[Rfam]
RNA sequence: GAGGGUCGGCCCCUCGGAGCCGCCAUACAGGUGGAGGCUUCAAAUCACCGUAAGCUGCGUCGGUAAAGAGCCGGGGUGGUGAGCGUUACGGAAAAGGCAGGGCUUGAUCUUGUCAGA
Numbered sequence: 001g002a003g004g005g006u007c008g009g010c011c012c013c014u015c016g017g018a019g020c021c022g023c024c025a026u027a028c029a030g031g032u033g034g035a036g037g038c039u040u041c042a043a044a045u046c047a048c049c050g051u052a053a054g055c056u057g058c059g060u061c062g063g064u065a066a067a068g069a070g071c072c073g074g075g076g077u078g079g080u081g082a083g084c085g086u087u088a089c090g091g092a093a094a095a096g097g098c099a100g101g102g103c104u105u106g107a108u109c110u111u112g113u114c115a116g117a
Stems, first nucleotide, its partner, number of pairs: 001015005016041006023034004045117002048091006054080002057077002061073004096114006